RNA: Purine riboswitch aptamer
RNA sequence: UAGAAUAAAUAAAUUAAUGUUCAUAUAGUAGCAGAGAUAAGGUCUGCAAGUUUCUACCGGACUGCCGUAAAUGGUCCGACUAUGAGCGAAAGUGUACCUAAG
Numbered sequence: 001u002a003g004a005a006u007a008a009a010u011a012a013a014u015u016a017a018u019g020u021u022c023a024u025a026u027a028g029u030a031g032c033a034g035a036g037a038u039a040a041g042g043u044c045u046g047c048a049a050g051u052u053u054c055u056a057c058c059g060g061a062c063u064g065c066c067g068u069a070a071a072u073g074g075u076c077c078g079a080c081u082a083u084g085a086g087c088g089a090a091a092g093u094g095u096a097c098c099u100a101a102g
Stems, first nucleotide, its partner, number of pairs: 018088008029049001031047005058078007